[Rfam]
RNA sequence: GAUUUUUCAGGAACAGUGUUUCCUAAAGACC
Numbered sequence: 001g002a003u004u005u006u007u008c009a010g011g012a013a014c015a016g017u018g019u020u021u022c023c024u025a026a027a028g029a030c031c
Base pairs, nucleotide, nucleotide: 001031003029004028005027006026007025009024010023011022012021013020014018
RNA: Iron response element II